[Rfam]
The family of this 488-nucleotide sequence from Monilinia fructigena is "Group I catalytic intron". From the family's description: Group I catalytic introns are large self-splicing ribozymes. They catalyse their own excision from mRNA, tRNA and rRNA precursors in a wide range of organisms. The source organism's lineage runs through Eukaryota, saccharomyceta, leotiomyceta, Leotiomycetes and Monilinia.
RNA sequence: UUACGGCUAUCUUGUGAAAGUGAACCUUUUGCUACAAACCAUCAAAUUGCGGGAAAGCCCUAAAGCAAUUUCAACCAAGCAGACGUGGCAACACAGUUUGUGGCACAGGUAAUGACUCGUGGUUAUUUUUUGGUUAUUUAUUUUAUAAAUAAUUUAAUUAUUACAUCUAUAGCUUUAUUAUAAUUAAAUAAAUAACCAAAAAAUUAGGUAAUAUCGGAAUUGAUGCACGUAAGGAAAUGGGUAAUCCGCAGCCAAGCACCACUACUUUAAAUAACAUACGUACUAUAAGGGUCCUAAGGUAGCGUAAUACCCUGGCGGUUAAAUGCGGUCUUGCAAUGAAUGAUUUAACCAUACUUCACUAAAGGGAGGUAGGCUUAUUUAAAGUAAGGGUGUGCAGUUCAUCGACUAAAUGUUGGUUGGCACGAAGUAUUUGUUUACACUCUUAUUUCGUGCUUAAGAUAUAGUCAAACCCUACUCGAAAGAGUACA
Numbered sequence: 001u002u003a004c005g006g007c008u009a010u011c012u013u014g015u016g017a018a019a020g021u022g023a024a025c026c027u028u029u030u031g032c033u034a035c036a037a038a039c040c041a042u043c044a045a046a047u048u049g050c051g052g053g054a055a056a057g058c059c060c061u062a063a064a065g066c067a068a069u070u071u072c073a074a075c076c077a078a079g080c081a082g083a084c085g086u087g088g089c090a091a092c093a094c095a096g097u098u099u100g101u102g103g104c105a106c107a108g109g110u111a112a113u114g115a116c117u118c119g120u121g122g123u124u125a126u127u128u129u130u131u132g133g134u135u136a137u138u139u140a141u142u143u144u145a146u147a148a149a150u151a152a153u154u155u156a157a158u159u160a161u162u163a164c165a166u167c168u169a170u171a172g173c174u175u176u177a178u179u180a181u182a183a184u185u186a187a188a189u190a191a192a193u194a195a196c197c198a199a200a201a202a203a204u205u206a207g208g209u210a211a212u213a214u215c216g217g218a219a220u221u222g223a224u225g226c227a228c229g230u231a232a233g234g235a236a237a238u239g240g241g242u243a244a245u246c247c248g249c250a251g252c253c254a255a256g257c258a259c260c261a262c263u264a265c266u267u268u269a270a271a272u273a274a275c276a277u278a279c280g281u282a283c284u285a286u287a288a289g290g291g292u293c294c295u296a297a298g299g300u301a302g303c304g305u306a307a308u309a310c311c312c313u314g315g316c317g318g319u320u321a322a323a324u325g326c327g328g329u330c331u332u333g334c335a336a337u338g339a340a341u342g343a344u345u346u347a348a349c350c351a352u353a354c355u356u357c358a359c360u361a362a363a364g365g366g367a368g369g370u371a372g373g374c375u376u377a378u379u380u381a382a383a384g385u386a387a388g389g390g391u392g393u394g395c396a397g398u399u400c401a402u403c404g405a406c407u408a409a410a411u412g413u414u415g416g417u418u419g420g421c422a423c424g425a426a427g428u429a430u431u432u433g434u435u436u437a438c439a440c441u442c443u444u445a446u447u448u449c450g451u452g453c454u455u456a457a458g459a460u461a462u463a464g465u466c467a468a469a470c471c472c473u474a475c476u477c478g479a480a481a482g483a484g485u486a487c488a
Base pairs, nucleotide, nucleotide: 011022013020037418038417039416040415041414043412044411048250049249050248051247052246053245058241059240060239251398252397256393257392258391259390263386264385265384266383267382268381269380270379271378272377273376274375402467404466405465406464407463408462420453421452422451423450424449425448426447427446428445473486474485475484476483477482